[Rfam]
Nucleotides: 083
Stems, first nucleotide, its partner, number of pairs: 003081003007078004012073001015070003020065004026059006034049004
Number, partner (000 for none) and nucleotide at each position: 001000c002000u003081g004080g005079u006000g007078u008077c009076g010075g011000u012073g013000c014000u015070g016069g017068g018000c019000a020065g021064u022063g023062g024000c025000c026059c027058c028057c029056g030055g031054g032000c033000c034049g035048g036047c037046c038000u039000c040000u041000g042000c043000u044000u045000u046037g047036g048035c049034c050000c051000c052000c053000u054031u055030c056029u057028g058027g059026g060000a061000c062023c063022c064021g065020c066000a067000c068017u069016c070015u071000c072000u073012c074000u075010c076009u077008g078007g079005g080004u081003c082000c083000g